[Rfam]
This 152-nucleotide RNA sequence from Mitsuokella sp. oral taxon 131 belongs to the Rfam family "glmS glucosamine-6-phosphate activated ribozyme aptamer". The source organism's lineage runs through Bacteria, Bacillati, Bacillota, Selenomonadaceae and Mitsuokella sp. oral taxon 131. Rfam classes the family as a riboswitch.

RNA sequence: GGAAUCAUCUUAGCGCUGGUUCUCAUGCGUGACAUGAGAGGACGAGGAGAAGGUUGUCGAGCCGUCAGCGGAUGCCUUCCGGCCGCCCGCCGAUAGAUUCCCGGCAAAGCCCGUGCGCGAGCGCGGGGACAAAAUGGGAUGGGGCGCAGCAG
Dot-bracket structure: ...................((((((((.....))))))))........(((((...(.((....)).)......)))))((((.....))))......((((.......(((((((....)))))))........)))).............

The family's consensus secondary structure is taken from published work. For this family Rfam cites "Control of gene expression by a natural metabolite-responsive ribozyme" (Winkler et al., Nature, 2004).